[Rfam]
RNA sequence: UAUUCCAUCGAGCCCGGGACCCCAGCUAGGUGCUCACCGCAGUGAUACGCCCUUGUCGUUAUCACCGGGUGAAAAUCAGCUAGGGUCCCGUGGAUCGAA
Numbered sequence: 001u002a003u004u005c006c007a008u009c010g011a012g013c014c015c016g017g018g019a020c021c022c023c024a025g026c027u028a029g030g031u032g033c034u035c036a037c038c039g040c041a042g043u044g045a046u047a048c049g050c051c052c053u054u055g056u057c058g059u060u061a062u063c064a065c066c067g068g069g070u071g072a073a074a075a076u077c078a079g080c081u082a083g084g085g086u087c088c089c090g091u092g093g094a095u096c097g098a099a
Stems, first nucleotide, its partner, number of pairs: 016089007024081004029077003034072005040067001042065006
The family of this 99-nucleotide RNA sequence from Caenorhabditis japonica is "mir-36 microRNA precursor family". The family's consensus secondary structure was predicted with WAR. The organism belongs to Caenorhabditis, within Eukaryota. It scores 62 bits against the family's covariance model.